[Rfam]
RNA sequence: GAUGUAAGAAGAAAGGCUAAAUUCGCGCCGUUCUGGCGCAACGCCUUCCUGACCAACAUCCUGUUGG
Numbered sequence: 001g002a003u004g005u006a007a008g009a010a011g012a013a014a015g016g017c018u019a020a021a022u023u024c025g026c027g028c029c030g031u032u033c034u035g036g037c038g039c040a041a042c043g044c045c046u047u048c049c050u051g052a053c054c055a056a057c058a059u060c061c062u063g064u065u066g067g
Stems, first nucleotide, its partner, number of pairs: 011049001013047005025039005053067005
RNA: Bacillaceae-1 RNA
Organism: Bacillus sp. J14TS2